[Rfam]
RNA sequence: CUGACGGCCGCGUCCGGGUCAAUUGCGAACUGCAACACCCAACCACCCUCCGUGCGCCUCCGUCGGUGGAGGUGCGGGAGGGGCAACGCGUCGCCAUCAG
Numbered sequence: 001c002u003g004a005c006g007g008c009c010g011c012g013u014c015c016g017g018g019u020c021a022a023u024u025g026c027g028a029a030c031u032g033c034a035a036c037a038c039c040c041a042a043c044c045a046c047c048c049u050c051c052g053u054g055c056g057c058c059u060c061c062g063u064c065g066g067u068g069g070a071g072g073u074g075c076g077g078g079a080g081g082g083g084c085a086a087c088g089c090g091u092c093g094c095c096a097u098c099a100g
Stems, first nucleotide, its partner, number of pairs: 001100004009090005016040003023035005044082001046080001048077002051074003

Annotation: This 100-nucleotide sequence from Halobellus salinus belongs to the Rfam family "L4-Archaeoglobi ribosomal protein leades". For this family Rfam cites "Discovery of 20 novel ribosomal leader candidates in bacteria and archaea" (Eckert and Weinberg, BMC Microbiol, 2020). The family's RNA type in Rfam is cis-regulatory leader.